Source information: This 117-nucleotide sequence from Actinoplanes italicus belongs to the Rfam family "SAM (S-adenosyl methionine) riboswitch aptamer". The source organism's lineage runs through Bacteria, Actinomycetota, Actinomycetes, Micromonosporaceae and Actinoplanes.
Nucleotides: 117
Stems, first nucleotide, its partner, number of pairs: 001081004009038001011037006021030002039068003044064003048059002084106010
Number, partner (000 for none) and nucleotide at each position: 001081g002080g003079u004078c005000a006000u007000g008000a009038g010000u011037g012036u013035c014034a015033g016032c017000g018000u019000c020000a021030a022029g023000c024000c025000c026000c027000g028000g029022c030021u031000c032016g033015c034014u035013g036012g037011c038009c039068g040067g041066c042000a043000a044064c045063c046062c047000u048059c049058c050000g051000c052000g053000u054000c055000a056000c057000g058049g059048g060000c061000g062046g063045g064044g065000u066041g067040c068039c069000c070000c071000g072000g073000g074000u075000g076000a077000u078004g079003a080002c081001c082000g083000g084106g085105u086104c087103c088102g089101g090100c091099g092098c093097g094000u095000c096000g097093c098092g099091u100090g101089c102088c103087g104086g105085g106084c107000a108000a109000g110000c111000c112000g113000c114000g115000a116000c117000c
The family's consensus secondary structure is taken from published work. From the family's description: SAM-IV is a mRNA element that regulates gene expression via direct sensing of S-adenosylmethionine (SAM or AdoMet). It scores 94 bits against the family's covariance model.